A member of the RNA family "small nucleolar RNA snoR137" from Arachis hypogaea, 139 nucleotides long.
The base pairs follow the family's consensus structure, which was predicted with RNAalifold.
RNA sequence: GUUGCUUCUGUAUUGCGGAGUGGCUGAUGUUGUAGUUGGUCAUUCACACAUAUAAAGCAUAUAGUUGUUAAAAUGCCAGUUUUAAACAGCAUGAUGAUACUUCACAUAUGCAUUGUGUUACCUGUCUGCUGGUAAAUUC
Numbered sequence: 001g002u003u004g005c006u007u008c009u010g011u012a013u014u015g016c017g018g019a020g021u022g023g024c025u026g027a028u029g030u031u032g033u034a035g036u037u038g039g040u041c042a043u044u045c046a047c048a049c050a051u052a053u054a055a056a057g058c059a060u061a062u063a064g065u066u067g068u069u070a071a072a073a074u075g076c077c078a079g080u081u082u083u084a085a086a087c088a089g090c091a092u093g094a095u096g097a098u099a100c101u102u103c104a105c106a107u108a109u110g111c112a113u114u115g116u117g118u119u120a121c122c123u124g125u126c127u128g129c130u131g132g133u134a135a136a137u138u139c
Base pairs, nucleotide, nucleotide: 003059004058005057006056007055017045018044019043021042022041023040024039025038075133076132077131078130079129080128088119089118090117092115093114094113095112096111